[Rfam]
Shown here is a 116-nucleotide RNA, a member of the family "LOOT RNA".
Rfam's curators put it in the seed alignment.

RNA sequence: UGCCUAAACCAAGCUUUCGCUUGGCAUGGCUAAAAGUCGGAUCACGCAUAAAAAACCCAUCAUGGGGUCGCGUGAUCCGCCAUAUCGGGAAACCGGUAUGAGUGGCUUCGGCCACU
Numbered sequence: 001u002g003c004c005u006a007a008a009c010c011a012a013g014c015u016u017u018c019g020c021u022u023g024g025c026a027u028g029g030c031u032a033a034a035a036g037u038c039g040g041a042u043c044a045c046g047c048a049u050a051a052a053a054a055a056c057c058c059a060u061c062a063u064g065g066g067g068u069c070g071c072g073u074g075a076u077c078c079g080c081c082a083u084a085u086c087g088g089g090a091a092a093c094c095g096g097u098a099u100g101a102g103u104g105g106c107u108u109c110g111g112c113c114a115c116u
Base pairs, nucleotide, nucleotide: 002030003029004028009024010023011022012021013020014019038079039078040077041076042075043074044073045072046071047070055068056067057066058065081100082099083098084097085096086095087094088093101116102115103114104113105112106111

The family's consensus secondary structure is taken from published work.